[Rfam]
RNA sequence: GCCGAGCUCAGUAGCGUGAGCUUGUAACCUGUGCAGGGGCACUAAAGUGAUUGAACAGUGGUUCAACUCAACUGCUCGGGUGCGAGGUGGCUACUAAUUGGCCUGCCCAUUCCAAGCCAAGGGUUGAGCCAUGUGACUUGGGCGAAGGCUCUGGGUCUCAUGGUUUCUAGAGUGGAGGGAACUGCGUGAGGCUGGUUUCACAGAGCAGCGACUACCUCCCUCCCUUGGCAGUGGAAGGAUUACAGGUUGAUUCUCACCUGUGCCCAACAAGACCCGUUGAGUUCAUCCUAAAUGAACCAUCACUUUU
Number, nucleotide and partner (000 for none) at each position: 001g040002c039003c038004g023005a022006g021007c020008u019009c018010a017011g000012u000013a000014g000015c000016g000017u010018g009019a008020g007021c006022u005023u004024g000025u000026a000027a000028c037029c036030u035031g000032u000033g000034c000035a030036g029037g028038g003039g002040c001041a000042c000043u000044a306045a305046a304047g303048u302049g301050a300051u299052u000053g297054a000055a000056c294057a293058g000059u290060g289061g287062u000063u285064c000065a283066a282067c000068u280069c279070a278071a277072c276073u000074g274075c000076u272077c271078g265079g264080g263081u262082g261083c260084g259085a000086g257087g000088u256089g255090g254091c000092u000093a251094c000095u000096a000097a000098u250099u249100g248101g247102c246103c245104u244105g243106c000107c238108c237109a000110u236111u235112c234113c233114a232115a000116g229117c228118c227119a226120a225121g224122g223123g222124u000125u000126g166127a165128g164129c163130c162131a161132u160133g159134u000135g157136a156137c155138u154139u153140g152141g150142g149143c148144g000145a000146a000147g000148g143149c142150u141151c000152u140153g139154g138155g137156u136157c135158u000159c133160a132161u131162g130163g129164u128165u127166u126167c172168u000169a000170g000171a000172g167173u000174g219175g218176a217177g216178g215179g000180a000181a000182c000183u000184g000185c210186g209187u208188g000189a000190g000191g000192c203193u202194g201195g000196u000197u000198u000199c000200a000201c194202a193203g192204a000205g000206c000207a000208g187209c186210g185211a000212c000213u000214a000215c178216c177217u176218c175219c174220c000221u000222c123223c122224c121225u120226u119227g118228g117229c116230a000231g000232u114233g113234g112235a111236a110237g108238g107239a000240u000241u000242a000243c105244a104245g103246g102247u101248u100249g099250a098251u093252u000253c000254u090255c089256a088257c086258c000259u084260g083261u082262g081263c080264c079265c078266a000267a000268c000269a000270a000271g077272a076273c000274c074275c000276g072277u071278u070279g069280a068281g000282u066283u065284c000285a063286u000287c061288c000289u060290a059291a000292a000293u057294g056295a000296a000297c053298c000299a051300u050301c049302a048303c047304u046305u045306u044307u000
The record is a 307-nucleotide RNA sequence from Quercus lobata, which matches "Plant signal recognition particle RNA" in Rfam. Gene Ontology terms of the family: SRP-dependent cotranslational protein targeting to membrane, signal sequence recognition and signal recognition particle, endoplasmic reticulum targeting. A search with the family's covariance model found it, with a score of 249 bits.